[Rfam]
RNA sequence: CACUCAACUUUCCACGGUUUGCACACUCGAUUUUCGCAGGGUGUUUCAAGUACCAGAGGUAGCCGGUUGCCGCGUGACGAAGGGAACAAAUCGACCAAACAAGCGAGGACGGUCAUGCGAUCUGCGCGGAUUGCACUGAUGCUGACGCUCGCGCUUGGCGGUCUGCAUGCGUCGAACUUCGCCCAUGCGCAGCGACAGGAGCCUGGUGCUUCGGCGCGCAA
Numbered sequence: 001c002a003c004u005c006a007a008c009u010u011u012c013c014a015c016g017g018u019u020u021g022c023a024c025a026c027u028c029g030a031u032u033u034u035c036g037c038a039g040g041g042u043g044u045u046u047c048a049a050g051u052a053c054c055a056g057a058g059g060u061a062g063c064c065g066g067u068u069g070c071c072g073c074g075u076g077a078c079g080a081a082g083g084g085a086a087c088a089a090a091u092c093g094a095c096c097a098a099a100c101a102a103g104c105g106a107g108g109a110c111g112g113u114c115a116u117g118c119g120a121u122c123u124g125c126g127c128g129g130a131u132u133g134c135a136c137u138g139a140u141g142c143u144g145a146c147g148c149u150c151g152c153g154c155u156u157g158g159c160g161g162u163c164u165g166c167a168u169g170c171g172u173c174g175a176a177c178u179u180c181g182c183c184c185a186u187g188c189g190c191a192g193c194g195a196c197a198g199g200a201g202c203c204u205g206g207u208g209c210u211u212c213g214g215c216g217c218g219c220a221a
Stems, first nucleotide, its partner, number of pairs: 018090004026084003031081003034077004040071003046066002051061004092218002095216001103182004108177001110174001112170002119163004125157002129152001133148002137144001188213002192209003196205001
RNA: Burkholderia sRNA 19
Organism: Burkholderia sp. lig30